[Rfam]
Nucleotides: 109
Stems, first nucleotide, its partner, number of pairs: 004108003008104006016096017036076007045067003
Number, partner (000 for none) and nucleotide at each position: 001000a002000c003000u004108c005107u006106c007000a008104u009103a010102u011101u012100c013099a014000a015000c016096u017095c018094g019093a020092u021091c022090c023089a024088u025087g026086u027085g028084u029083a030082u031081u032080g033000a034000g035000a036076u037075g038074g039073a040072u041071u042070g043000a044000a045067g046066u047065g048000u049000a050000a051000a052000u053000u054000a055000g056000u057000u058000u059000a060000a061000g062000u063000u064000a065047u066046g067045c068000u069000c070042c071041a072040a073039u074038c075037c076036a077000c078000c079000u080032c081031a082030a083029u084028a085027c086026a087025c088024g089023u090022g091021g092020a093019u094018u095017g096016a097000g098000g099013u100012g101011a102010a103009u104008a105000c106006g107005g108004g109000a
The family of this 109-nucleotide RNA from Zea mays is "MIR5565 microRNA precursor family". Rfam links the family to the GO terms RISC complex and miRNA-mediated post-transcriptional gene silencing. Rfam 15.1 lists 3,346 matches to the family in 5 species. It scores 82 bits against the family's covariance model. Lineage of the source: Eukaryota > Streptophytina > Tracheophyta > Spermatophyta > Zea.